[Rfam]
RNA sequence: AUGGUAUUUAUGACGUGGCUAGAUUAAACCCUUUAAGAUGUCUAGUUGCUGAUACCACCAU
Numbered sequence: 001a002u003g004g005u006a007u008u009u010a011u012g013a014c015g016u017g018g019c020u021a022g023a024u025u026a027a028a029c030c031c032u033u034u035a036a037g038a039u040g041u042c043u044a045g046u047u048g049c050u051g052a053u054a055c056c057a058c059c060a061u
Stems, first nucleotide, its partner, number of pairs: 001061005015049010030037001

Shown here is a 61-nucleotide RNA from Python bivittatus, a member of the family "Selenocysteine insertion sequence 1". The family has 61 seed sequences and 3,793 matches in Rfam 15.1. The incorporation of selenocysteine into a protein sequence is directed by an in-frame UGA codon (usually a stop codon) within the coding region of the mRNA. Selenoprotein mRNAs contain a conserved secondary structure in the 3' UTR that is required for the distinction of UGA stop from UGA selenocysteine. The selenocysteine insertion sequence (SECIS) is around 60 nt in length and adopts a hairpin structure which is sufficiently well-defined and conserved to act as a computational screen for selenoprotein genes. The match comes from Rfam's covariance-model search (40 bits). The organism belongs to Python, within Eukaryota. It is annotated as a cis-regulatory element.